The record is a 119-nucleotide RNA sequence from Mesobacillus zeae, which matches "epsC RNA" in Rfam.
[Rfam]
RNA sequence: CGGCGAUGCCUCCUUGUCCGAUACCCAUGGAGGCACUCGAUCAUGCUGUGGGAUGCAGGUUUGCAGGCCUUAGACACGCUGUUGUCGAUAGUAUGAUGUGAGGAUGGGUUAGAUGCCCA
Dot-bracket structure: [[[...(((((((....]]]........)))))))((((((((((((..(((.((((....))).).)))..((((......))))...)))))))).))))..(((((.....)))))
Numbered sequence: 001c002g003g004c005g006a007u008g009c010c011u012c013c014u015u016g017u018c019c020g021a022u023a024c025c026c027a028u029g030g031a032g033g034c035a036c037u038c039g040a041u042c043a044u045g046c047u048g049u050g051g052g053a054u055g056c057a058g059g060u061u062u063g064c065a066g067g068c069c070u071u072a073g074a075c076a077c078g079c080u081g082u083u084g085u086c087g088a089u090a091g092u093a094u095g096a097u098g099u100g101a102g103g104a105u106g107g108g109u110u111a112g113a114u115g116c117c118c119a
Stems, first nucleotide, its partner, number of pairs: 001020003007035007036102004040097008050070003054066001055064003073086004105119005